Rfam assigns this 245-nucleotide sequence from Paenibacillus graminis to the family "BsrG". By type it is a small RNA. bsrE, bsrG and bsrH pair through intermolecular interactions with antisense sRNAs. They form type I toxin/antitoxin system that includes an mRNA encoding for a short, toxic peptide (bsrE, bsrG and bsrH) and an antitoxin that is comprised of an antisense RNA. bsrG encodes a 39-amino-acid toxin, and the 180 nucleotide antisense sRNA called SR4 acts as the antitoxin (they overlap by 123 nucleotides). SR4 interaction with the 3'UTR of bsrG RNA promotes bsrG degradation and inhibits its translation. BsrG interferes with cell envelope biosynthesis, causes membrane invaginations and delocalisation of the cell wall synthesis and initiates autolysis. bsrE RNA encodes 30 amino-acid toxin peptide. Its antitoxin gene, SR5 overlaps by 112 nucleotides at the 3' end of bsrE. SR5 also overlaps bsrG from nucleotide 163 to 52 (Rfam overlap check). The antitoxin SR5 promotes bsrE degradation but unlike SR4 it does not directly inhibits toxin mRNA translation. The family's consensus secondary structure was predicted with WAR. Rfam 15.1 lists 614 matches to the family in 343 species. Gene Ontology terms of the family: toxin activity and autolysis. NCBI's taxonomy places the organism under Bacteria, Bacillota, Bacilli, Caryophanales, Paenibacillus.

RNA sequence: CAAUAGAAGGCUUGCAAGGGCGGCUGGUUAAUCUCCCGGAGGGGAGGUGAUGCCUGUGGAAUUAUACCAAGCAUUGACGCUAAUGAUUUCAUUUGCGACUCUGGUUGUAUUAAUCCUGUCUUUCCACAAAAAGAAAUAGGCCGCCCUCUGUCCAGGAUUGCGGCCUAUUUCUGUGGGUAGUACCUGUCUGAGCCUCCGCCCUUAAAAGCGGCUAUUGCAGGGGAGUCGUGUUAGUCGCACGACAC
Numbered sequence: 001c002a003a004u005a006g007a008a009g010g011c012u013u014g015c016a017a018g019g020g021c022g023g024c025u026g027g028u029u030a031a032u033c034u035c036c037c038g039g040a041g042g043g044g045a046g047g048u049g050a051u052g053c054c055u056g057u058g059g060a061a062u063u064a065u066a067c068c069a070a071g072c073a074u075u076g077a078c079g080c081u082a083a084u085g086a087u088u089u090c091a092u093u094u095g096c097g098a099c100u101c102u103g104g105u106u107g108u109a110u111u112a113a114u115c116c117u118g119u120c121u122u123u124c125c126a127c128a129a130a131a132a133g134a135a136a137u138a139g140g141c142c143g144c145c146c147u148c149u150g151u152c153c154a155g156g157a158u159u160g161c162g163g164c165c166u167a168u169u170u171c172u173g174u175g176g177g178u179a180g181u182a183c184c185u186g187u188c189u190g191a192g193c194c195u196c197c198g199c200c201c202u203u204a205a206a207a208g209c210g211g212c213u214a215u216u217g218c219a220g221g222g223g224a225g226u227c228g229u230g231u232u233a234g235u236c237g238c239a240c241g242a243c244a245c
Stems, first nucleotide, its partner, number of pairs: 001217006008195006015150002017147004022141001024139002029050001031048001033046005058120002061117001064114001072085002097110001153173003196211004223245001225243007